[Rfam]
RNA: Small nucleolar RNA SNORA84
RNA sequence: GCCUGGUGGUUCCUCGAGCCAGCUCCAAAAUGCUGAGCUGUGGGGGUUUUUCGUUAGCAGGCGCACAUUGAUUCCUGCGGUUUAAUGCGUGGGGCGCUCCCGCCACCAGCGGCGCCCCACAGCCCGGCCGCAGAUACACGC
Dot-bracket structure: ((((..((.(((((..(..((((........))))...)..))))).....)).....))))............(.((((((....((((((.(((((.(........).))))).)))).))..)))))).)........